[Rfam]
RNA sequence: CGCUUUUUUCGCCCAGGCGGAGAAGGGCCGCAAACCCAAGUGAUAGUCAAAUUCAUUGAUGACGAGAAACAGCAUUACGGGGUCGAGUCGAUUUGCAGAAUACUGCCAAUUGCCCCA
Numbered sequence: 001c002g003c004u005u006u007u008u009u010c011g012c013c014c015a016g017g018c019g020g021a022g023a024a025g026g027g028c029c030g031c032a033a034a035c036c037c038a039a040g041u042g043a044u045a046g047u048c049a050a051a052u053u054c055a056u057u058g059a060u061g062a063c064g065a066g067a068a069a070c071a072g073c074a075u076u077a078c079g080g081g082g083u084c085g086a087g088u089c090g091a092u093u094u095g096c097a098g099a100a101u102a103c104u105g106c107c108a109a110u111u112g113c114c115c116c117a
Stems, first nucleotide, its partner, number of pairs: 017031004079116004089112002092109002095106004
Shown here is a 117-nucleotide RNA sequence from Faucicola atlantae, a member of the family "ALIL pseudoknot". The family's consensus secondary structure is taken from published work. For this family Rfam cites "Apical loop-internal loop RNA pseudoknots: a new type of stimulator of -1 translational frameshifting in bacteria" (Mazauric et al., J Biol Chem, 2008). Rfam 15.1 lists 2,146 matches to the family in 1,098 species. Rfam classes the family as a cis-regulatory element.